Small Cajal body specific RNA 11: a 139-nucleotide RNA from Pardalotus punctatus. The match comes from Rfam's covariance-model search (65 bits). By type it is a small Cajal body RNA. The source organism's lineage runs through Eukaryota, Amniota, Dinosauria, Passeriformes and Pardalotus. Its family is annotated with Cajal body, nucleolus and RNA processing in the Gene Ontology.

[Rfam]
RNA sequence: GCGUCCUGACCUUACCCUGGCUGUUCCCCUCACCAGAGCUGUGGUGGUGGGGUCUGGGGGUGGACGCAGAUCAGCUUACUCUCAUGUUAGGAGGGCUCCCAAAGACAUGUGCAAGCCCUUAAAGGCAAGAGAGGACACU
Numbered sequence: 001g002c003g004u005c006c007u008g009a010c011c012u013u014a015c016c017c018u019g020g021c022u023g024u025u026c027c028c029c030u031c032a033c034c035a036g037a038g039c040u041g042u043g044g045u046g047g048u049g050g051g052g053u054c055u056g057g058g059g060g061u062g063g064a065c066g067c068a069g070a071u072c073a074g075c076u077u078a079c080u081c082u083c084a085u086g087u088u089a090g091g092a093g094g095g096c097u098c099c100c101a102a103a104g105a106c107a108u109g110u111g112c113a114a115g116c117c118c119u120u121a122a123a124g125g126c127a128a129g130a131g132a133g134g135a136c137a138c139u
Base pairs, nucleotide, nucleotide: 002066003065004064005063006062010059011058026052027051028049030047031046032045033044079133080132081131082130083129087124088123091120092119093118094117095116096115097114098111100109101108